RNA: Small nucleolar RNA SNORD35
Organism: Triplophysa rosa
RNA sequence: UGCAUAUGAUGUCUUUUCUCACGAUGGUCUUCCUAAACUCUCUGAGGAUACUGCCUUUGGCAUUGCUGAUGCAGUUAA
Numbered sequence: 001u002g003c004a005u006a007u008g009a010u011g012u013c014u015u016u017u018c019u020c021a022c023g024a025u026g027g028u029c030u031u032c033c034u035a036a037a038c039u040c041u042c043u044g045a046g047g048a049u050a051c052u053g054c055c056u057u058u059g060g061c062a063u064u065g066c067u068g069a070u071g072c073a074g075u076u077a078a
Base pairs, nucleotide, nucleotide: 001073002072003071004070